The family of this 74-nucleotide RNA sequence from Homo sapiens is "Small nucleolar RNA SNORD81". The family's RNA type in Rfam is C/D-box small nucleolar RNA. The organism belongs to Homo, within Eukaryota. On this family, see Smith and Steitz, Mol Cell Biol 1998: "Classification of gas5 as a multi-small-nucleolar-RNA (snoRNA) host gene and a member of the 5'-terminal oligopyrimidine gene family reveals common features of snoRNA host genes". Rfam links the family to the GO terms nucleolus and RNA processing.
RNA sequence: UUGGAUAUACGAUAAUCUCACUCCGACUUAAACUCUCUCACUGAUUAUUUGAUAAUAACAGGUCAGAUAUUCUU
Numbered sequence: 001u002u003g004g005a006u007a008u009a010c011g012a013u014a015a016u017c018u019c020a021c022u023c024c025g026a027c028u029u030a031a032a033c034u035c036u037c038u039c040a041c042u043g044a045u046u047a048u049u050u051g052a053u054a055a056u057a058a059c060a061g062g063u064c065a066g067a068u069a070u071u072c073u074u
Stems, first nucleotide, its partner, number of pairs: 003072005